[Rfam]
Notes: HDV ribozyme from F. prausnitzii: a 74-nucleotide RNA from Trichomalopsis sarcophagae. A search with the family's covariance model found it, with a score of 60 bits. The base pairs follow the family's consensus structure, which is taken from published work.
RNA sequence: GAUUCUCAAUGUUUGCUAACCUCCACGUGGUGAGAAUCGGGCAACGUUUAUUUAUAAACGGCAAAGAGGCAAUA
Number, nucleotide and partner (000 for none) at each position: 001g038002a037003u036004u035005c034006u033007c032008a000009a000010u000011g000012u000013u000014u000015g000016c000017u000018a000019a031020c030021c029022u000023c000024c000025a000026c000027g000028u000029g021030g020031u019032g007033a006034g005035a004036a003037u002038c001039g000040g000041g000042c000043a000044a000045c060046g059047u058048u057049u056050a000051u000052u000053u000054a000055u000056a049057a048058a047059c046060g045061g000062c000063a000064a000065a000066g000067a000068g000069g000070c000071a000072a000073u000074a000
The organism belongs to Trichomalopsis, within Eukaryota.